[Rfam]
RNA sequence: GCGGGGGGCUGGAUGACCGCGUGACCAUGUGUUGCGAGGAAAGUCCGGACUCCAUGAGGCGACGAUGCCGGGUAACGCCCGGCGGGGGUAACCCCAGGGAAAGCGCCACAGAGAACAGACCGCCCGCGCUUGCGCGGGUAAGGGUGAAACGGUGGAGUAAGAGCCCACCGGAGGGCUGGCAACAGUCCUCGCAUGGCAAGCCCCAUCGGGAGCAAUGCCGAAUAGGGACCGCGCGCGGAGCAAUCCGCAGGGCCGCCUUGCCCCAGCAGGUCCGGGUAGGCAGCUAGAUCCGGUCGGUAACGGCCGGGCCAGAGGAAUGGUCAUCCAGAGAGAGUUUUCUCUUGGACAGAAUCCGGCUUACAGGCCCCCCGCACAU
Numbered sequence: 001g002c003g004g005g006g007g008g009c010u011g012g013a014u015g016a017c018c019g020c021g022u023g024a025c026c027a028u029g030u031g032u033u034g035c036g037a038g039g040a041a042a043g044u045c046c047g048g049a050c051u052c053c054a055u056g057a058g059g060c061g062a063c064g065a066u067g068c069c070g071g072g073u074a075a076c077g078c079c080c081g082g083c084g085g086g087g088g089u090a091a092c093c094c095c096a097g098g099g100a101a102a103g104c105g106c107c108a109c110a111g112a113g114a115a116c117a118g119a120c121c122g123c124c125c126g127c128g129c130u131u132g133c134g135c136g137g138g139u140a141a142g143g144g145u146g147a148a149a150c151g152g153u154g155g156a157g158u159a160a161g162a163g164c165c166c167a168c169c170g171g172a173g174g175g176c177u178g179g180c181a182a183c184a185g186u187c188c189u190c191g192c193a194u195g196g197c198a199a200g201c202c203c204c205a206u207c208g209g210g211a212g213c214a215a216u217g218c219c220g221a222a223u224a225g226g227g228a229c230c231g232c233g234c235g236c237g238g239a240g241c242a243a244u245c246c247g248c249a250g251g252g253c254c255g256c257c258u259u260g261c262c263c264c265a266g267c268a269g270g271u272c273c274g275g276g277u278a279g280g281c282a283g284c285u286a287g288a289u290c291c292g293g294u295c296g297g298u299a300a301c302g303g304c305c306g307g308g309c310c311a312g313a314g315g316a317a318u319g320g321u322c323a324u325c326c327a328g329a330g331a332g333a334g335u336u337u338u339c340u341c342u343u344g345g346a347c348a349g350a351a352u353c354c355g356g357c358u359u360a361c362a363g364g365c366c367c368c369c370c371g372c373a374c375a376u
Stems, first nucleotide, its partner, number of pairs: 001372010011361001012325007020036006041359003045356005050212004058259002061256001063208005068082005083097001084095004098203002103201002105197003120143002122139007151169005170192001171190008216282004226273005250264003254260001289308008
Background:
Shown here is a 376-nucleotide RNA from Paracoccus seriniphilus, a member of the family "Bacterial RNase P class A". Pairs were carried over by alignment from the consensus structure, which is taken from published work. From the family's description: Ribonuclease P (RNase P) is a ubiquitous endoribonuclease, found in archaea, bacteria and eukarya as well as chloroplasts and mitochondria. Its best characterised activity is the generation of mature 5'-ends of tRNAs by cleaving the 5'-leader elements of precursor-tRNAs. Cellular RNase Ps are ribonucleoproteins. RNA from bacterial RNase Ps retains its catalytic activity in the absence of the protein subunit, i.e. it is a ribozyme. Isolated eukaryotic and archaeal RNase P RNA has not been shown to retain its catalytic function, but is still essential for the catalytic activity of the holoenzyme. Although the archaeal and eukaryotic holoenzyme s have a much greater protein content than the bacterial ones, the RNA cores from all the three lineages are homologous -- helices corresponding to P1, P2, P3, P4, and P10/11 are common to all cellular RNase P RNAs. Yet, there is considerable sequence variation, particularly among the eukaryotic RNAs. Identified in Yersinia as Ysr151/RnpB. The organism belongs to Paracoccus, within Bacteria. It is annotated as a ribozyme.